[Rfam]
RNA: Purine riboswitch aptamer
RNA sequence: UAUCCAAGGAAGUGAACAUCUCGUAUAACCUCAAUAAUACGGUUUGAGGGUCUCUACUAGGAGCCGAACAAUCCUAACUACGAGUAUAGGGUGCUUGUAU
Numbered sequence: 001u002a003u004c005c006a007a008g009g010a011a012g013u014g015a016a017c018a019u020c021u022c023g024u025a026u027a028a029c030c031u032c033a034a035u036a037a038u039a040c041g042g043u044u045u046g047a048g049g050g051u052c053u054c055u056a057c058u059a060g061g062a063g064c065c066g067a068a069c070a071a072u073c074c075u076a077a078c079u080a081c082g083a084g085u086a087u088a089g090g091g092u093g094c095u096u097g098u099a100u
Base pairs, nucleotide, nucleotide: 020084021083022082023081024080025079029049030048031047032046033045034044058076059075060074061073062072